[Rfam]
RNA sequence: CCAGUCGUAGCCGAUGUUCCACAAGAGGGGGCCUAGGACAGACCCUUGUGGAACACCACACGACAUC
Numbered sequence: 001c002c003a004g005u006c007g008u009a010g011c012c013g014a015u016g017u018u019c020c021a022c023a024a025g026a027g028g029g030g031g032c033c034u035a036g037g038a039c040a041g042a043c044c045c046u047u048g049u050g051g052a053a054c055a056c057c058a059c060a061c062g063a064c065a066u067c
Base pairs, nucleotide, nucleotide: 004064005063006062007061008060010059013056015055016054017053018052019051020050024049026047027046029045030044031043033041034040